The family of this 155-nucleotide RNA sequence from Streptomyces showdoensis is "c-di-AMP riboswitch aptamer (ydaO/yuaA leader)".
RNA sequence: AUCCGCACACCACCCGGACAAGGCAGGAGCGGGGGACCCAGGUAGUACGCCGAUCCCUCGAAGAAGGACGGCUCGGGGUGAAGUCGCGCGACCGCGCGGCCGGACAUCUCCAGUCCGAACCCGACAGCUCACCUCGCAGGCGACGGAGAGGAAUU
Numbered sequence: 001a002u003c004c005g006c007a008c009a010c011c012a013c014c015c016g017g018a019c020a021a022g023g024c025a026g027g028a029g030c031g032g033g034g035g036a037c038c039c040a041g042g043u044a045g046u047a048c049g050c051c052g053a054u055c056c057c058u059c060g061a062a063g064a065a066g067g068a069c070g071g072c073u074c075g076g077g078g079u080g081a082a083g084u085c086g087c088g089c090g091a092c093c094g095c096g097c098g099g100c101c102g103g104a105c106a107u108c109u110c111c112a113g114u115c116c117g118a119a120c121c122c123g124a125c126a127g128c129u130c131a132c133c134u135c136g137c138a139g140g141c142g143a144c145g146g147a148g149a150g151g152a153a154u155u
Base pairs, nucleotide, nucleotide: 002028003027004026029137030136031135032134033133034132039075076122077121078120084099085098086097087096102116103115104114105113
The pairing is the family consensus, mapped onto this sequence. The source organism's lineage runs through Bacteria, Actinomycetota, Actinomycetes, Kitasatosporales and Streptomyces.